[Rfam]
RNA sequence: AAUAAGUUGUAGCCUAAAUCCGCCGAUGGCGGAUGCGGGGGAACCGAUAGUAGGGGCGUAUUUCCCGGGAUAUUUUCGGGAAUAGGGUACUUCCAAUCCCGAGCCCGUCAGCUAACCUCGCAGGCGUUUGGAAGGGCAAUG
Numbered sequence: 001a002a003u004a005a006g007u008u009g010u011a012g013c014c015u016a017a018a019u020c021c022g023c024c025g026a027u028g029g030c031g032g033a034u035g036c037g038g039g040g041g042a043a044c045c046g047a048u049a050g051u052a053g054g055g056g057c058g059u060a061u062u063u064c065c066c067g068g069g070a071u072a073u074u075u076u077c078g079g080g081a082a083u084a085g086g087g088u089a090c091u092u093c094c095a096a097u098c099c100c101g102a103g104c105c106c107g108u109c110a111g112c113u114a115a116c117c118u119c120g121c122a123g124g125c126g127u128u129u130g131g132a133a134g135g136g137c138a139a140u141g
Stems, first nucleotide, its partner, number of pairs: 012125003018034006035121006045053001054106003062082009085100003
c-di-AMP riboswitch aptamer (ydaO/yuaA leader): a 141-nucleotide RNA from Candidatus Sulfobium mesophilum. Taxonomically the source falls in Candidatus Sulfobium (Bacteria, Pseudomonadati, Nitrospirales, Nitrospiraceae). Its family is annotated with regulation of gene expression and cyclic-di-AMP binding in the Gene Ontology. The match comes from Rfam's covariance-model search (84 bits).